A member of the RNA family "cow-rumen-1 RNA", 61 nucleotides long. Pairs were carried over by alignment from the consensus structure, which is taken from published work. The family's RNA type in Rfam is small RNA.
RNA sequence: ACAGUGGAUGCUGAAUUAGAGUUUGACAGCGUAAGACCACCGCCCGACAAGAUCGAAGAGG
Numbered sequence: 001a002c003a004g005u006g007g008a009u010g011c012u013g014a015a016u017u018a019g020a021g022u023u024u025g026a027c028a029g030c031g032u033a034a035g036a037c038c039a040c041c042g043c044c045c046g047a048c049a050a051g052a053u054c055g056a057a058g059a060g061g
Stems, first nucleotide, its partner, number of pairs: 004040004009031005014023003